[Rfam]
RNA sequence: GGCUCUAUGAUUACGUGCCUAGUGGGCCAUAUACGCUAUUCUGAUUCAUUAUAUGAGUAGAAAAUUUACAUUUACAAUGAGAGCU
Numbered sequence: 001g002g003c004u005c006u007a008u009g010a011u012u013a014c015g016u017g018c019c020u021a022g023u024g025g026g027c028c029a030u031a032u033a034c035g036c037u038a039u040u041c042u043g044a045u046u047c048a049u050u051a052u053a054u055g056a057g058u059a060g061a062a063a064a065u066u067u068a069c070a071u072u073u074a075c076a077a078u079g080a081g082a083g084c085u
Base pairs, nucleotide, nucleotide: 001085002084003083004082005081

The record is an 85-nucleotide sequence from Cannabis sativa, which matches "Small nucleolar RNA U54" in Rfam. U54 is a C/D box small nucleolar RNA, which acts as a methylation guide for 18S ribosomal RNA in plants. Its family is annotated with nucleolus and RNA processing in the Gene Ontology. It scores 50 bits against the family's covariance model. The literature on the family includes a 2003 paper in Nucleic Acids Res by Chen et al., "The high diversity of snoRNAs in plants: identification and comparative study of 120 snoRNA genes from Oryza sativa".